RNA: Small nucleolar RNA SNORD11B
RNA sequence: UGCAAGCGGUGAUGAUUCCUGACCUUGUGUCAAGACCCUGACAUUUCUGUGAAGGUGUCUAAGUCACUACCUCGUCUGAGCUUGUG
Number, nucleotide and partner (000 for none) at each position: 001u000002g085003c084004a083005a082006g081007c080008g000009g000010u000011g000012a000013u000014g000015a000016u000017u000018c000019c000020u000021g000022a000023c000024c000025u000026u000027g000028u000029g000030u000031c000032a000033a000034g000035a000036c000037c000038c000039u000040g000041a000042c000043a000044u000045u000046u000047c000048u000049g000050u000051g000052a000053a000054g000055g000056u000057g000058u000059c000060u000061a000062a000063g000064u000065c000066a000067c000068u000069a000070c000071c000072u000073c000074g000075u000076c000077u000078g000079a000080g007081c006082u005083u004084g003085u002086g000